[Rfam]
Shown here is a 93-nucleotide RNA from Roseivivax halotolerans, a member of the family "Rhodo-rpoB RNA".

RNA sequence: UGAUCGGGAAGGCCUCUGGUGGGACAGAGGCCGAGAAUAGAUCGGAGCAAGCCCUCUCGGUUGAGCACGCGCCCGGGGCCCGACGGCCGCGCG
Numbered sequence: 001u002g003a004u005c006g007g008g009a010a011g012g013c014c015u016c017u018g019g020u021g022g023g024a025c026a027g028a029g030g031c032c033g034a035g036a037a038u039a040g041a042u043c044g045g046a047g048c049a050a051g052c053c054c055u056c057u058c059g060g061u062u063g064a065g066c067a068c069g070c071g072c073c074c075g076g077g078g079c080c081c082g083a084c085g086g087c088c089g090c091g092c093g
Stems, first nucleotide, its partner, number of pairs: 001044005011032008066093001068091004073086003

The family's consensus secondary structure is taken from published work. It scores 68 bits against the family's covariance model. The organism belongs to Roseivivax, within Bacteria. By type it is a cis-regulatory element.